[Rfam]
RNA sequence: GCCAGCCCUAGGCUGAUCCCCGAAAACCCGUUUCCCUGACGGGUCGGGCUGGCACCUAUUCAGGGG
Numbered sequence: 001g002c003c004a005g006c007c008c009u010a011g012g013c014u015g016a017u018c019c020c021c022g023a024a025a026a027c028c029c030g031u032u033u034c035c036c037u038g039a040c041g042g043g044u045c046g047g048g049c050u051g052g053c054a055c056c057u058a059u060u061c062a063g064g065g066g
Base pairs, nucleotide, nucleotide: 001053002052003051004050005049006048007047008046011021012020027043028042029041030040034066035065036064037063
Shown here is a 66-nucleotide RNA sequence from Caenimonas koreensis, a member of the family "int-alpA RNA". The match comes from Rfam's covariance-model search (42 bits). About the family: Acidobacteria (1 example), Planctomycetes (1 example), Proteobacteria. The source organism's lineage runs through Bacteria, Betaproteobacteria, Burkholderiales, Caenimonas and Caenimonas koreensis.